[Rfam]
RNA sequence: UGUCCCUGGUCAGGGUAGAGUGGCAUCUGAUGGGUGGUGCCCAUCUCAUAUCAGGGACAAAGCAAUCCCCUGUGGAUCCCAGCUUGGCUUUUGAUCUGUGCACAUUCCUGGUUCAUGCCUUGAAUACGUGG
Numbered sequence: 001u002g003u004c005c006c007u008g009g010u011c012a013g014g015g016u017a018g019a020g021u022g023g024c025a026u027c028u029g030a031u032g033g034g035u036g037g038u039g040c041c042c043a044u045c046u047c048a049u050a051u052c053a054g055g056g057a058c059a060a061a062g063c064a065a066u067c068c069c070c071u072g073u074g075g076a077u078c079c080c081a082g083c084u085u086g087g088c089u090u091u092u093g094a095u096c097u098g099u100g101c102a103c104a105u106u107c108c109u110g111g112u113u114c115a116u117g118c119c120u121u122g123a124a125u126a127c128g129u130g131g
Base pairs, nucleotide, nucleotide: 001059002058003057004056005055006054007053008052018047019046020045022041023040024039025038026037027036071126072125073124076121086119087118088117092115093114094113096111097110098109100107

The record is a 131-nucleotide RNA from Carlito syrichta, which matches "Small nucleolar RNA SNORA48" in Rfam. Clan: SNORA48 clan. Rfam 15.1 lists 2,109 matches to the family in 150 species. It is annotated as an H/ACA-box small nucleolar RNA. The source organism's lineage runs through Eukaryota, Deuterostomia, Sarcopterygii, Tarsiiformes and Carlito. The snoRNA ACA 48 has been identified to guide pseudouridylation of the residue U3797 in the 28S rRNA subunit.